A member of the RNA family "Group II catalytic intron D1-D4-2" from Lachnospiraceae bacterium XPB1003, 111 nucleotides long.
[Rfam]
RNA sequence: GGAGGAAGGCCCUCCGCAAUCGCCAUACAGGUGGAGAUUGCAAAACACUCAUAGAUGCUGCGAGGAAAAGUCGUGGUAUUGAGCGUAUGAGAAAAGGUAGCAAAGAAUGCU
Numbered sequence: 001g002g003a004g005g006a007a008g009g010c011c012c013u014c015c016g017c018a019a020u021c022g023c024c025a026u027a028c029a030g031g032u033g034g035a036g037a038u039u040g041c042a043a044a045a046c047a048c049u050c051a052u053a054g055a056u057g058c059u060g061c062g063a064g065g066a067a068a069a070g071u072c073g074u075g076g077u078a079u080u081g082a083g084c085g086u087a088u089g090a091g092a093a094a095a096g097g098u099a100g101c102a103a104a105g106a107a108u109g110c111u
Stems, first nucleotide, its partner, number of pairs: 001015005016041006023034004048091006054080002057077003061073003099111003
The family has 144 seed sequences and 1,231 matches in Rfam 15.1.
The source organism's lineage runs through Bacteria, Bacillota, Clostridia, Lachnospirales and Lachnospiraceae.
The pairing is the family consensus, mapped onto this sequence.
The literature on the family includes a 2001 paper in Trends Genet by Bonen and Vogel, "The ins and outs of group II introns".
Group II introns are found in rRNA, tRNA and mRNA of organelles in fungi, plants and protists, and also in mRNA in bacteria.